Source information: Rfam assigns this 67-nucleotide RNA sequence from Halalkalibacter nanhaiisediminis to the family "Bacillaceae-1 RNA". The family's consensus secondary structure is taken from published work.
RNA sequence: UAAAAAGGAAACUUGGCUAAAGACACUCACGUCCUGUGAGUAACGCCGAGUACCUACGUCCUGUAGG
Numbered sequence: 001u002a003a004a005a006a007g008g009a010a011a012c013u014u015g016g017c018u019a020a021a022g023a024c025a026c027u028c029a030c031g032u033c034c035u036g037u038g039a040g041u042a043a044c045g046c047c048g049a050g051u052a053c054c055u056a057c058g059u060c061c062u063g064u065a066g067g
Base pairs, nucleotide, nucleotide: 011051012050013049014048015047016046017045026040027039028038029037030036053067054066055065056064057063